[Rfam]
RNA sequence: AGUGAUGAUAGAGGUGCAACUAUUAAUAGUACGGACAUAUAAGAGCAGAACAAGCUCAUUUGGAAUAUGUUCGGAAAGGAAUCGUUGCCGAAGUGAUAAUUAGUUUGUUCCUAGUUAUUGCUGGUUGUGCAUUUAAGAGAUGUACGACUGUCAGAGUGAAUUCUGGAGAGCUAUCUCACAU
Number, nucleotide and partner (000 for none) at each position: 001a000002g000003u000004g000005a000006u000007g175008a174009u173010a172011g171012a000013g000014g000015u000016g088017c087018a086019a085020c084021u000022a082023u081024u080025a000026a000027u000028a000029g000030u000031a000032c073033g072034g071035a070036c069037a068038u067039a066040u000041a000042a000043g000044a000045g000046c000047a000048g000049a000050a000051c000052a000053a000054g000055c000056u000057c000058a000059u000060u000061u000062g000063g000064a000065a000066u039067a038068u037069g036070u035071u034072c033073g032074g000075a000076a000077a000078g000079g000080a024081a023082u022083c000084g020085u019086u018087g017088c016089c000090g000091a000092a122093g121094u120095g119096a118097u117098a116099a115100u114101u113102a112103g111104u000105u000106u000107g000108u000109u000110c000111c103112u102113a101114g100115u099116u098117a097118u096119u095120g094121c093122u092123g149124g148125u147126u146127g145128u144129g143130c142131a141132u140133u139134u000135a000136a000137g000138a000139g133140a132141u131142g130143u129144a128145c127146g126147a125148c124149u123150g000151u166152c165153a164154g163155a162156g161157u000158g000159a000160a000161u156162u155163c154164u153165g152166g151167a000168g000169a000170g000171c011172u010173a009174u008175c007176u000177c000178a000179c000180a000181u000